Bacterial large subunit ribosomal RNA: a 540-nucleotide part of an RNA from Leptolyngbya ectocarpi. The base pairs follow the family's consensus structure, which is taken from published work. Lineage of the source: Bacteria > Cyanobacteriota > Leptolyngbyaceae > Leptolyngbya > Leptolyngbya ectocarpi.

RNA sequence: UACAAAGGGCUCAUGGUGGAUACCUAGGCACACAGAGGCGAUGAAGGACGCGGUUACCGGCGAUAUGCCACGGGGAGCAGGAAGCAUGCAUUGAUCCGUGGGUUUCCGAAUGGGGCAACCCUAAAUACGGUCAUCUGAAUACAUAGGAUGGCACGAGCUAACGCAGCGAAUUGAAACAUCUUAGUAGCUGUAGGAAGAGAAAGAAAACUCGAUUCCCGUAGUAGCGGCGAGCGAACUGGGAAGAGCCUAAACCAGCCUUUUUUAGGGCUGGGGUUGUGGGACAGCGAUAUGAAAUCUGGCGACUAGACGAAUCACUUGAGAGGUGAACCAAAGAAGGUGAGAGUCCUGUAGUCGAAAGUUAAAAGAUACUAGCUGACUCCCGAGUAGGUCGGGGCACGUGGAAUCCCGAUUGAAUCCGCGAGGACCACCUCGCAAGGCUAAAUACUCCUGUGUGACCGAUAGCGAAUAGUACCGCGAGGGAACGGUGAAAAGAACCCCGGGAGGGGAGUGAAAUAGAACAUGAAACCAUGAGCUUACAAG
Numbered sequence: 001u002a003c004a005a006a007g008g009g010c011u012c013a014u015g016g017u018g019g020a021u022a023c024c025u026a027g028g029c030a031c032a033c034a035g036a037g038g039c040g041a042u043g044a045a046g047g048a049c050g051c052g053g054u055u056a057c058c059g060g061c062g063a064u065a066u067g068c069c070a071c072g073g074g075g076a077g078c079a080g081g082a083a084g085c086a087u088g089c090a091u092u093g094a095u096c097c098g099u100g101g102g103u104u105u106c107c108g109a110a111u112g113g114g115g116c117a118a119c120c121c122u123a124a125a126u127a128c129g130g131u132c133a134u135c136u137g138a139a140u141a142c143a144u145a146g147g148a149u150g151g152c153a154c155g156a157g158c159u160a161a162c163g164c165a166g167c168g169a170a171u172u173g174a175a176a177c178a179u180c181u182u183a184g185u186a187g188c189u190g191u192a193g194g195a196a197g198a199g200a201a202a203g204a205a206a207a208c209u210c211g212a213u214u215c216c217c218g219u220a221g222u223a224g225c226g227g228c229g230a231g232c233g234a235a236c237u238g239g240g241a242a243g244a245g246c247c248u249a250a251a252c253c254a255g256c257c258u259u260u261u262u263u264a265g266g267g268c269u270g271g272g273g274u275u276g277u278g279g280g281a282c283a284g285c286g287a288u289a290u291g292a293a294a295u296c297u298g299g300c301g302a303c304u305a306g307a308c309g310a311a312u313c314a315c316u317u318g319a320g321a322g323g324u325g326a327a328c329c330a331a332a333g334a335a336g337g338u339g340a341g342a343g344u345c346c347u348g349u350a351g352u353c354g355a356a357a358g359u360u361a362a363a364a365g366a367u368a369c370u371a372g373c374u375g376a377c378u379c380c381c382g383a384g385u386a387g388g389u390c391g392g393g394g395c396a397c398g399u400g401g402a403a404u405c406c407c408g409a410u411u412g413a414a415u416c417c418g419c420g421a422g423g424a425c426c427a428c429c430u431c432g433c434a435a436g437g438c439u440a441a442a443u444a445c446u447c448c449u450g451u452g453u454g455a456c457c458g459a460u461a462g463c464g465a466a467u468a469g470u471a472c473c474g475c476g477a478g479g480g481a482a483c484g485g486u487g488a489a490a491a492g493a494a495c496c497c498c499g500g501g502a503g504g505g506g507a508g509u510g511a512a513a514u515a516g517a518a519c520a521u522g523a524a525a526c527c528a529u530g531a532g533c534u535u536a537c538a539a540g
Stems, first nucleotide, its partner, number of pairs: 007535010023485002027457002029454007036446002038158002046107003049062003068101007077089003112121003128155002130152007162193001163191005173180002203210002213442001214241005224232002244439004252271007278381003282375004294367004301360004306353003312326005329333001335347003387411008418433005472479002495506004